Listeria LhrC: a 107-nucleotide RNA from Listeria booriae. On this family, see Sievers et al., Nucleic Acids Res 2014: "A multicopy sRNA of Listeria monocytogenes regulates expression of the virulence adhesin LapB". Gene Ontology terms of the family: mRNA binding and negative regulation of translational initiation. It is annotated as a small RNA. From the family's description: This RNA was identifed by screening for RNA molecules which co-immunoprecipitated with the RNA chaperone Hfq.

[Rfam]
RNA sequence: AUAAGCUAACAACAAGCAAAUAAUUUUCAUACUUUCCCUUAAGAAUGAAAAUCCCAAACUCCCUUUUUGACCAUCGCGGUUACUCCCUUUUCCGCGGUGGUUUUUUA
Numbered sequence: 001a002u003a004a005g006c007u008a009a010c011a012a013c014a015a016g017c018a019a020a021u022a023a024u025u026u027u028c029a030u031a032c033u034u035u036c037c038c039u040u041a042a043g044a045a046u047g048a049a050a051a052u053c054c055c056a057a058a059c060u061c062c063c064u065u066u067u068u069g070a071c072c073a074u075c076g077c078g079g080u081u082a083c084u085c086c087c088u089u090u091u092c093c094g095c096g097g098u099g100g101u102u103u104u105u106u107a
Base pairs, nucleotide, nucleotide: 023052024051025050026049027048028047029046030045032043071100072099073098074097075096076095077094078093079092